The record is a 76-nucleotide RNA sequence from Myotis davidii, which matches "mir-9223 microRNA precursor family" in Rfam.
RNA sequence: GGAGGUUCUCGGGUGACCCAUCCCAGAAUCGGGCUUCCUCCUCUCUGGUUCUGGGGUGUGUCACCCAAGAACCACC
Numbered sequence: 001g002g003a004g005g006u007u008c009u010c011g012g013g014u015g016a017c018c019c020a021u022c023c024c025a026g027a028a029u030c031g032g033g034c035u036u037c038c039u040c041c042u043c044u045c046u047g048g049u050u051c052u053g054g055g056g057u058g059u060g061u062c063a064c065c066c067a068a069g070a071a072c073c074a075c076c
Stems, first nucleotide, its partner, number of pairs: 002075001005072005011066007019058005025052009
It scores 84 bits against the family's covariance model.
Taxonomically the source falls in Myotis (Eukaryota, Bilateria, Gnathostomata, Chiroptera).